[Rfam]
The family of this 137-nucleotide sequence from Conservatibacter flavescens is "Molybdenum/Tungsten riboswitch aptamer (Moco RNA motif)". For this family Rfam cites "in molybdenum cofactor and tungsten cofactor metabolism" (Regulski et al., Mol Microbiol, 2008). Gene Ontology terms of the family: regulation of gene expression, molybdenum ion binding and tungstate binding. Pairs were carried over by alignment from the consensus structure, which is taken from published work. The source organism's lineage runs through Bacteria, Pseudomonadati, Gammaproteobacteria, Pasteurellales and Conservatibacter.
RNA sequence: UAUUUUGCAUCACUCCGAGCUUGUUUACCUAAACCUUUUGGCAUGGUGGCAAUGCCGAUAUUGUAUUCAAUAUCCAUGGAUAAUACUGGAAACGGUUUAUCCACUCGUAUUUAGAAAGGUGUCCAAAUGCAUAUUCC
Numbered sequence: 001u002a003u004u005u006u007g008c009a010u011c012a013c014u015c016c017g018a019g020c021u022u023g024u025u026u027a028c029c030u031a032a033a034c035c036u037u038u039u040g041g042c043a044u045g046g047u048g049g050c051a052a053u054g055c056c057g058a059u060a061u062u063g064u065a066u067u068c069a070a071u072a073u074c075c076a077u078g079g080a081u082a083a084u085a086c087u088g089g090a091a092a093c094g095g096u097u098u099a100u101c102c103a104c105u106c107g108u109a110u111u112u113a114g115a116a117a118g119g120u121g122u123c124c125a126a127a128u129g130c131a132u133a134u135u136c137c
Stems, first nucleotide, its partner, number of pairs: 003131001012122002015119002019055002022052001025049005034041002057074005077103006085096004104114002